[Rfam]
Nucleotides: 129
Base pairs, nucleotide, nucleotide: 003055004054005053006052007051015043016042017041018040020038021037022036023035024034081110082109083108084107086105087104088103089102
Number, partner (000 for none) and nucleotide at each position: 001000a002000u003055g004054c005053a006052g007051g008000a009000u010000a011000a012000g013000u014000u015043a016042c017041a018040g019000u020038g021037c022036a023035g024034c025000u026000u027000g028000c029000g030000u031000g032000g033000u034024g035023c036022u037021g038020u039000u040018c041017u042016g043015u044000c045000g046000u047000u048000c049000c050000c051007c052006c053005u054004g055003u056000a057000u058000a059000a060000a061000a062000c063000a064000a065000g066000u067000u068000g069000u070000u071000g072000c073000c074000u075000u076000c077000u078000a079000u080000c081110c082109c083108u084107g085000c086105u087104u088103g089102u090000c091000u092000a093000c094000g095000u096000c097000c098000c099000c100000u101000g102089a103088u104087a105086a106000g107084c108083a109082g110081g111000g112000a113000c114000g115000c116000u117000u118000g119000g120000u121000u122000u123000c124000a125000a126000a127000c128000a129000u